[Rfam]
RNA: Small nucleolar RNA snR161
RNA sequence: CCAAUUGUUUCUAACCAGUAUCAUUGGCUGUCCCAGUAUCUCCAACAUUAGGACGGUCUCUAUAAGCUGUAAGAUUGAUGCUUUCUGAACAACUUAAGUUCCGCUGUUGAAAUUUUCUAUUUGUUUUCUAUAGCUUUACUGUCGUUCAAACAAUU
Numbered sequence: 001c002c003a004a005u006u007g008u009u010u011c012u013a014a015c016c017a018g019u020a021u022c023a024u025u026g027g028c029u030g031u032c033c034c035a036g037u038a039u040c041u042c043c044a045a046c047a048u049u050a051g052g053a054c055g056g057u058c059u060c061u062a063u064a065a066g067c068u069g070u071a072a073g074a075u076u077g078a079u080g081c082u083u084u085c086u087g088a089a090c091a092a093c094u095u096a097a098g099u100u101c102c103g104c105u106g107u108u109g110a111a112a113u114u115u116u117c118u119a120u121u122u123g124u125u126u127u128c129u130a131u132a133g134c135u136u137u138a139c140u141g142u143c144g145u146u147c148a149a150a151c152a153a154u155u
Stems, first nucleotide, its partner, number of pairs: 016069004027057007035049002086148005092142002103134005109128004116123001